Shown here is a 69-nucleotide RNA from Oryzias javanicus, a member of the family "mir-8/mir-141/mir-200 microRNA precursor family". Rfam links the family to the GO terms RISC complex and miRNA-mediated post-transcriptional gene silencing. Its Rfam clan is "mir-8 microRNA precursor clan". On this family, see Lagos-Quintana et al., Science 2001: "Identification of novel genes coding for small expressed RNAs".
RNA sequence: AUAGGCGUCUUACCAGACAUGGUUAGAUGUAAUUAUCGGAGUCUAAUACUGUCUGGUAAUGCCGUCCAU
Numbered sequence: 001a002u003a004g005g006c007g008u009c010u011u012a013c014c015a016g017a018c019a020u021g022g023u024u025a026g027a028u029g030u031a032a033u034u035a036u037c038g039g040a041g042u043c044u045a046a047u048a049c050u051g052u053c054u055g056g057u058a059a060u061g062c063c064g065u066c067c068a069u
Stems, first nucleotide, its partner, number of pairs: 002068001004066004009061001010059010022047006
Rfam 15.1 lists 2,669 matches to the family in 883 species.